[Rfam]
RNA sequence: CUUCCUCAGCCUUACUCCAGGGCAGUUUUGUCUGUAAAGUGUCCUGGCAUUGCCUGAGGAUAAAUGAGAAAGCACAAAUCCCUCCCCAAGAAGAUUCGAACUUCUUCUGGGGCCUACAGAUUGAGCUGACAGU
Numbered sequence: 001c002u003u004c005c006u007c008a009g010c011c012u013u014a015c016u017c018c019a020g021g022g023c024a025g026u027u028u029u030g031u032c033u034g035u036a037a038a039g040u041g042u043c044c045u046g047g048c049a050u051u052g053c054c055u056g057a058g059g060a061u062a063a064a065u066g067a068g069a070a071a072g073c074a075c076a077a078a079u080c081c082c083u084c085c086c087c088a089a090g091a092a093g094a095u096u097c098g099a100a101c102u103u104c105u106u107c108u109g110g111g112g113c114c115u116a117c118a119g120a121u122u123g124a125g126c127u128g129a130c131a132g133u
Stems, first nucleotide, its partner, number of pairs: 003060007011052001017047006024040001026038003071127003075123002084112005091106004
This 133-nucleotide sequence from Ochotona princeps belongs to the Rfam family "Small nucleolar RNA SNORA49". Rfam's curators write: The snoRNA ACA49 has no identified RNA target. The family's consensus secondary structure was predicted with RNAalifold. Its family is annotated with RNA processing and nucleolus in the Gene Ontology. The family's RNA type in Rfam is H/ACA-box small nucleolar RNA. The source organism's lineage runs through Eukaryota, Eutheria, Euarchontoglires, Lagomorpha and Ochotona.